[Rfam]
RNA sequence: CAUGGAGCCGGGUGAAAUUCCCGGCUGGCUCCUCCGGCCGCCUAUCCGCCGGAUAACC
Number, nucleotide and partner (000 for none) at each position: 001c000002a000003u000004g000005g000006a026007g025008c024009c023010g022011g021012g000013u000014g000015a000016a000017a000018u000019u000020c000021c011022c010023g009024g008025c007026u006027g000028g000029c000030u000031c000032c000033u053034c052035c051036g050037g049038c048039c000040g000041c000042c000043u000044a000045u000046c000047c000048g038049c037050c036051g035052g034053a033054u000055a000056a000057c000058c000
RNA: sul1 RNA